[Rfam]
Background
Shown here is a 78-nucleotide sequence from Fulvimarina manganoxydans, a member of the family "Makes More Granules Regulator RNA (mmgR)". Rfam classes the family as a small RNA. On this family, see Valverde et al., BMC Genomics 2008: "Prediction of Sinorhizobium meliloti sRNA genes and experimental detection in strain 2011". Lineage of the source: Bacteria > Pseudomonadati > Alphaproteobacteria > Hyphomicrobiales > Fulvimarina.
RNA sequence: CGUCGCUGCCCUUACGGGCGUUUCCUCCCUAGACUCAAGACCGCGCUGCCUCGUCAGUGCGGUUUUUUUUGACCCCUA
Numbered sequence: 001c002g003u004c005g006c007u008g009c010c011c012u013u014a015c016g017g018g019c020g021u022u023u024c025c026u027c028c029c030u031a032g033a034c035u036c037a038a039g040a041c042c043g044c045g046c047u048g049c050c051u052c053g054u055c056a057g058u059g060c061g062g063u064u065u066u067u068u069u070u071g072a073c074c075c076c077u078a
Stems, first nucleotide, its partner, number of pairs: 008019004040063009